[Rfam]
RNA sequence: GCGAUGUGACGAAGAAAUUCAUGUCUGUCAAUCCACUGAUAUUAAGUGUGAUGUCAACAGUGAAUCCCGACAGGUUCCGAUCGC
Numbered sequence: 001g002c003g004a005u006g007u008g009a010c011g012a013a014g015a016a017a018u019u020c021a022u023g024u025c026u027g028u029c030a031a032u033c034c035a036c037u038g039a040u041a042u043u044a045a046g047u048g049u050g051a052u053g054u055c056a057a058c059a060g061u062g063a064a065u066c067c068c069g070a071c072a073g074g075u076u077c078c079g080a081u082c083g084c
Stems, first nucleotide, its partner, number of pairs: 001084004